This 101-nucleotide RNA from Pleuronectes platessa belongs to the Rfam family "mir-214 microRNA precursor family". It scores 93 bits against the family's covariance model. The family's consensus secondary structure was predicted with RNAalifold. Its family is annotated with RISC complex and miRNA-mediated post-transcriptional gene silencing in the Gene Ontology.

RNA sequence: CUGACGGAGCUGCAGUGUGUCUGCCUAUCUACACUUGCUGUGCAGAAUAUCCUCCAACCUGUACAGCAGGCACAGACAGGCAGAUAGACAGCAGCCCACCA
Number, nucleotide and partner (000 for none) at each position: 001c000002u000003g000004a000005c000006g000007g000008a000009g000010c000011u000012g000013c000014a000015g000016u000017g000018u086019g085020u000021c000022u082023g081024c080025c079026u078027a000028u076029c075030u074031a000032c000033a000034c070035u000036u068037g067038c066039u065040g064041u063042g000043c061044a060045g059046a000047a000048u000049a000050u000051c000052c000053u000054c000055c000056a000057a000058c000059c045060u044061g043062u000063a041064c040065a039066g038067c037068a036069g000070g034071c000072a000073c000074a030075g029076a028077c000078a026079g025080g024081c023082a022083g000084a000085u019086a018087g000088a000089c000090a000091g000092c000093a000094g000095c000096c000097c000098a000099c000100c000101a000